Notes:
The record is a 139-nucleotide sequence from Oryza punctata, which matches "Small nucleolar RNA Z247" in Rfam. Gene Ontology terms of the family: RNA processing and nucleolus. Taxonomically the source falls in Oryza (Eukaryota, Streptophyta, Mesangiospermae, Oryzoideae). The family's consensus secondary structure was predicted with PFOLD. The match comes from Rfam's covariance-model search (62 bits).
RNA sequence: AAGCUCGACGAUGAGGACCUUGUGUCUUACAUCCUCGCCGGGCUUGACUUCGAUUAUGAUCCAGUGGUUUCAGCGGUUGUAGCCCGCGUGGAACCGAUCACGAUCUCAGAGCUAAUCACACAACUGAUUAGCUUUGAGC
Numbered sequence: 001a002a003g004c005u006c007g008a009c010g011a012u013g014a015g016g017a018c019c020u021u022g023u024g025u026c027u028u029a030c031a032u033c034c035u036c037g038c039c040g041g042g043c044u045u046g047a048c049u050u051c052g053a054u055u056a057u058g059a060u061c062c063a064g065u066g067g068u069u070u071c072a073g074c075g076g077u078u079g080u081a082g083c084c085c086g087c088g089u090g091g092a093a094c095c096g097a098u099c100a101c102g103a104u105c106u107c108a109g110a111g112c113u114a115a116u117c118a119c120a121c122a123a124c125u126g127a128u129u130a131g132c133u134u135u136g137a138g139c
Stems, first nucleotide, its partner, number of pairs: 004138005090106003
A reference for the family is Chen et al. (2003), "The high diversity of snoRNAs in plants: identification and comparative study of 120 snoRNA genes from Oryza sativa", Nucleic Acids Res.